[Rfam]
RNA sequence: UGACUACAACGUCGUUUGAGUAUCCUGAAAACGGGCUUUUCAGCAUGACGUUGUGGUGUAAAUUAAAUAAUAGGAGUGCAUAGUGGCCCGUAUAGCAGGCAUUAACAUUCCUGAU
Number, nucleotide and partner (000 for none) at each position: 001u000002g000003a000004c056005u055006a054007c053008a052009a051010c050011g049012u048013c047014g000015u000016u000017u000018g000019a000020g000021u000022a000023u000024c099025c098026u097027g000028a000029a000030a000031a000032c090033g089034g088035g087036c000037u000038u000039u000040u114041c113042a112043g000044c000045a000046u000047g013048a012049c011050g010051u009052u008053g007054u006055g005056g004057u000058g000059u000060a000061a000062a000063u000064u000065a000066a000067a000068u000069a000070a000071u000072a000073g000074g000075a000076g000077u000078g000079c000080a000081u000082a000083g000084u000085g000086g000087c035088c034089c033090g032091u000092a000093u000094a000095g000096c000097a026098g025099g024100c000101a000102u000103u000104a000105a000106c000107a000108u000109u000110c000111c000112u042113g041114a040115u000
A member of the RNA family "Alpha operon ribosome binding site" from Candidatus Regiella insecticola, 115 nucleotides long. On this family, see Schlax et al., J Biol Chem 2001: "Translational repression of the Escherichia coli alpha operon mRNA: importance of an mRNA conformational switch and a ternary entrapment complex". Taxonomically the source falls in Candidatus Regiella (Bacteria, Pseudomonadota, Enterobacterales, aphid secondary symbionts). Pairs were carried over by alignment from the consensus structure, which is taken from published work. Rfam's curators put it in the seed alignment. The bacterial alpha operon ribosome binding site is surrounded by this complex pseudoknotted structure. Translation of the mRNA produces 4 ribosomal protein products, one of which (S4) acts as a translational repressor by binding to the nested pseudoknot region. The mechanism of repression is thought to involve a conformational switch in the pseudoknot region and ribosome entrapment.